[Rfam]
Nucleotides: 072
Stems, first nucleotide, its partner, number of pairs: 008040001010039004016072007023035001044061002047058001049056002
Number, partner (000 for none) and nucleotide at each position: 001000u002000g003000a004000g005000g006000u007000u008040g009000a010039g011038g012037c013036u014000a015000u016072a017071g018070c019069a020068g021067a022066a023035g024000c025000a026000c027000u028000c029000a030000c031000a032000u033000c034000a035023u036013g037012g038011c039010c040008c041000u042000g043000u044061c045060a046000u047058a048000g049056u050055u051000g052000a053000a054000u055050g056049a057000a058047u059000c060045u061044g062000c063000a064000a065000a066022u067021u068020c069019u070018g071017c072016u